[Rfam]
This 115-nucleotide sequence from Medicago truncatula belongs to the Rfam family "MIR2593 microRNA precursor family". A search with the family's covariance model found it, with a score of 96 bits. Rfam links the family to the GO terms RISC complex and miRNA-mediated post-transcriptional gene silencing.
RNA sequence: UUAUAAGCAAAAAAACACUUUUUAGUUUCAUUGAAUAACCGAUGUAUGCAGUCAGUAUUAUAGACUGGAUACAUCAAUUAUUCAAUGAAUCUAAAAAGUGAUUUCUUGCUUAUAA
Numbered sequence: 001u002u003a004u005a006a007g008c009a010a011a012a013a014a015a016c017a018c019u020u021u022u023u024a025g026u027u028u029c030a031u032u033g034a035a036u037a038a039c040c041g042a043u044g045u046a047u048g049c050a051g052u053c054a055g056u057a058u059u060a061u062a063g064a065c066u067g068g069a070u071a072c073a074u075c076a077a078u079u080a081u082u083c084a085a086u087g088a089a090u091c092u093a094a095a096a097a098g099u100g101a102u103u104u105c106u107u108g109c110u111u112a113u114a115a
Stems, first nucleotide, its partner, number of pairs: 002114006009107002012104002016100010027089012041075004049067004